Rfam assigns this 144-nucleotide RNA from Sodalis ligni to the family "radC RNA". Rfam 15.1 lists 500 matches to the family in 142 species. The base pairs follow the family's consensus structure, which is taken from published work.
RNA sequence: ACGCUUUGACCAUGUUCCGCUGACGAUGUCAGCGACAUGCCAGGCAGCUUUUGGUCUUUGAAGUUGCGCACAGUUUACCGUGUGACCGAACCAGCUCGCACCGCAUCCUCGCGCGAACGGCCACCGACCUGUCGGUGGUGAUGC
Numbered sequence: 001a002c003g004c005u006u007u008g009a010c011c012a013u014g015u016u017c018c019g020c021u022g023a024c025g026a027u028g029u030c031a032g033c034g035a036c037a038u039g040c041c042a043g044g045c046a047g048c049u050u051u052u053g054g055u056c057u058u059u060g061a062a063g064u065u066g067c068g069c070a071c072a073g074u075u076u077a078c079c080g081u082g083u084g085a086c087c088g089a090a091c092c093a094g095c096u097c098g099c100a101c102c103g104c105a106u107c108c109u110c111g112c113g114c115g116a117a118c119g120g121c122c123a124c125c126g127a128c129c130u131g132u133c134g135g136u137g138g139u140g141a142u143g144c
Base pairs, nucleotide, nucleotide: 011039012038013037014036016034019033020032021031022030023029024028044067045066046065047064048063049062053087054086055085056084068083069082070081071080073078113144114143115142120139121138122137123136124135125134126133127132